[Rfam]
RNA sequence: GUCGGAGUGGCGGAACUGGCAGACGCGCACGUUUGAGGGGCGUGUGGGCAACCGUGGGGGUUCAAGUCCCCCCUCCGACA
Number, nucleotide and partner (000 for none) at each position: 001g079002u078003c077004g076005g075006a074007g073008u000009g000010g026011c025012g024013g000014a000015a000016c000017u000018g000019g000020c000021a000022g000023a000024c012025g011026c010027g000028c044029a043030c042031g041032u040033u000034u000035g000036a000037g000038g000039g000040g032041c031042g030043u029044g028045u000046g000047g000048g000049c000050a000051a000052c000053c000054g000055u000056g072057g071058g070059g069060g068061u000062u000063c000064a000065a000066g000067u000068c060069c059070c058071c057072c056073c007074u006075c005076c004077g003078a002079c001080a000
tRNA: an 80-nucleotide RNA sequence from Gelria sp. Kuro-4. It scores 47 bits against the family's covariance model. Rfam links the family to the GO term triplet codon-amino acid adaptor activity. Pairs were carried over by alignment from the consensus structure, which is taken from published work. Taxonomically the source falls in Gelria (Bacteria, Bacillota, Clostridia, Thermoanaerobacteraceae).